[Rfam]
RNA sequence: GUGCAUCCAGCAUGAAUUGAACCUACAUUUGCCAAUUAUGAGUUGGCGCUUUAACCAUUCGCCAUGGAUGC
Numbered sequence: 001g002u003g004c005a006u007c008c009a010g011c012a013u014g015a016a017u018u019g020a021a022c023c024u025a026c027a028u029u030u031g032c033c034a035a036u037u038a039u040g041a042g043u044u045g046g047c048g049c050u051u052u053a054a055c056c057a058u059u060c061g062c063c064a065u066g067g068a069u070g071c
Stems, first nucleotide, its partner, number of pairs: 003071006010026001012024001014022001038065003042062002045059002048056001

The record is a 71-nucleotide sequence from Musa balbisiana, which matches "Plastid-ycf2 5UTR RNA" in Rfam. The organism belongs to Musa, within Eukaryota. For this family Rfam cites "Retrograde signaling in plants: A critical review focusing on the GUN pathway and beyond" (Richter et al., Plant Commun, 2023). Rfam 15.1 lists 3,521 matches to the family in 417 species. Rfam's curators write: Plastid ycf2 is a non-coding RNA (ncRNA) recognised in plastids.